[Rfam]
RNA sequence: UGAUCUCAAAUCAGAUAAGAGUACCCGCUGAACUUAAGCAUAUCAAUAAGCGGAGGAAAAGAAACUAACAAGGAUUCCCUUAGUAACGGCGAGUGAAGCGGGAAGAGCUCAAAUUUGAAAUCUUCAAGGUUCUACCUUGACGAAUUGUAGUUUAAAGAAGUGUUUUCUGUUAGAGGAGUAGCAAAAGUUCCUUGGAAUGGGACAUCAUAGAGGGUGAGAAUCCCGUAUUUGGUUAUUCUUUCUAGCUUUGUGAUACACUUUCAAAGAGUCGGAUUGUUUGGGAAUGCAGUCCAAAAUGGGUGGUAAAUUUCAUCUAAAGCUAAAUAUUGGCGAGAGACCGAUAGCGAACAAGUACCGUGAGGGAAAGAUGAAAAGAACUUUGAAAAGAGAGUUAAACAGUACGUGAAAUUGUCAAAAGGGAAG
Numbered sequence: 001u002g003a004u005c006u007c008a009a010a011u012c013a014g015a016u017a018a019g020a021g022u023a024c025c026c027g028c029u030g031a032a033c034u035u036a037a038g039c040a041u042a043u044c045a046a047u048a049a050g051c052g053g054a055g056g057a058a059a060a061g062a063a064a065c066u067a068a069c070a071a072g073g074a075u076u077c078c079c080u081u082a083g084u085a086a087c088g089g090c091g092a093g094u095g096a097a098g099c100g101g102g103a104a105g106a107g108c109u110c111a112a113a114u115u116u117g118a119a120a121u122c123u124u125c126a127a128g129g130u131u132c133u134a135c136c137u138u139g140a141c142g143a144a145u146u147g148u149a150g151u152u153u154a155a156a157g158a159a160g161u162g163u164u165u166u167c168u169g170u171u172a173g174a175g176g177a178g179u180a181g182c183a184a185a186a187g188u189u190c191c192u193u194g195g196a197a198u199g200g201g202a203c204a205u206c207a208u209a210g211a212g213g214g215u216g217a218g219a220a221u222c223c224c225g226u227a228u229u230u231g232g233u234u235a236u237u238c239u240u241u242c243u244a245g246c247u248u249u250g251u252g253a254u255a256c257a258c259u260u261u262c263a264a265a266g267a268g269u270c271g272g273a274u275u276g277u278u279u280g281g282g283a284a285u286g287c288a289g290u291c292c293a294a295a296a297u298g299g300g301u302g303g304u305a306a307a308u309u310u311c312a313u314c315u316a317a318a319g320c321u322a323a324a325u326a327u328u329g330g331c332g333a334g335a336g337a338c339c340g341a342u343a344g345c346g347a348a349c350a351a352g353u354a355c356c357g358u359g360a361g362g363g364a365a366a367g368a369u370g371a372a373a374a375g376a377a378c379u380u381u382g383a384a385a386a387g388a389g390a391g392u393u394a395a396a397c398a399g400u401a402c403g404u405g406a407a408a409u410u411g412u413c414a415a416a417a418g419g420g421a422a423g
Stems, first nucleotide, its partner, number of pairs: 024055001025053005035042002065072002076103004086094002106321004112152004118146002121143002124140004157262002159259004164255001166253002169246007177237006187203001189202004206210001213223002271292007298315005355362002378389004
The family of this 423-nucleotide part of an RNA from Neocallimastix californiae is "Eukaryotic large subunit ribosomal RNA". Its Rfam clan is "LSU clan". Taxonomically the source falls in Neocallimastix (Eukaryota, Opisthokonta, Neocallimastigomycota, Neocallimastigaceae). The family's consensus secondary structure is taken from published work. A search with the family's covariance model found it, with a score of 3349 bits.